[Rfam]
RNA sequence: GCCGCCGAGAGGUGGCGUCCCCGACGCCUCAUGGGUCGGGAACGACUGAGACGGGCACCGGUCGUGUCCGGUGCCGCUCGUAUCCAUUUUGCUCCUUGGAGGAUUUGGCUAUGCGCA
Numbered sequence: 001g002c003c004g005c006c007g008a009g010a011g012g013u014g015g016c017g018u019c020c021c022c023g024a025c026g027c028c029u030c031a032u033g034g035g036u037c038g039g040g041a042a043c044g045a046c047u048g049a050g051a052c053g054g055g056c057a058c059c060g061g062u063c064g065u066g067u068c069c070g071g072u073g074c075c076g077c078u079c080g081u082a083u084c085c086a087u088u089u090u091g092c093u094c095c096u097u098g099g100a101g102g103a104u105u106u107g108g109c110u111a112u113g114c115g116c117a
Base pairs, nucleotide, nucleotide: 020040021039022038023037024036025035027034028033052076054075055074056073057072058071059070060069061068077115079113080112081111082110084108085107086106089103090102092101093100094099
RNA: Repression of heat shock gene expression (ROSE) element
Organism: Bradyrhizobium japonicum